[Rfam]
RNA sequence: AAAUAGCCUUGUUAGGUGAGGUUACUGCACAAGAGAUACGCUGCUGCCCAGAAACGUUCAAAGACGCCAAUGGGUCAACAGGAAUUUUCGAAUUAAGGAAAUUCUUAAUGCAGCUGGGAACAUAUAUAUCCCUAUGCUGUGCAGAGCUAAAACUCGACGAAGAGGUGCUAA
Numbered sequence: 001a002a003a004u005a006g007c008c009u010u011g012u013u014a015g016g017u018g019a020g021g022u023u024a025c026u027g028c029a030c031a032a033g034a035g036a037u038a039c040g041c042u043g044c045u046g047c048c049c050a051g052a053a054a055c056g057u058u059c060a061a062a063g064a065c066g067c068c069a070a071u072g073g074g075u076c077a078a079c080a081g082g083a084a085u086u087u088u089c090g091a092a093u094u095a096a097g098g099a100a101a102u103u104c105u106u107a108a109u110g111c112a113g114c115u116g117g118g119a120a121c122a123u124a125u126a127u128a129u130c131c132c133u134a135u136g137c138u139g140u141g142c143a144g145a146g147c148u149a150a151a152a153c154u155c156g157a158c159g160a161a162g163a164g165g166u167g168c169u170a171a
Stems, first nucleotide, its partner, number of pairs: 006166005011158002013096001015154003020148003025144006032138002040114005046075005055066004081105004087099003116132003
The record is a 171-nucleotide RNA sequence from Aerococcus suis, which matches "M-box riboswitch aptamer (ykoK leader)" in Rfam.
Rfam 15.1 lists 1,095 matches to the family in 932 species.
M-box riboswitch, also know as ykoK leader is described as a metaloregulatory RNA that sense divalent metals and function as a genetic control element of genes related to divalent metal transport in bacteria. It was first reported upstream of the B.subtilis ykoK gene and genes with related functions in other bacteria.
A search with the family's covariance model found it, with a score of 138 bits.
NCBI's taxonomy places the organism under Bacteria, Bacillati, Bacillota, Lactobacillales, Aerococcus.
The pairing is the family consensus, mapped onto this sequence.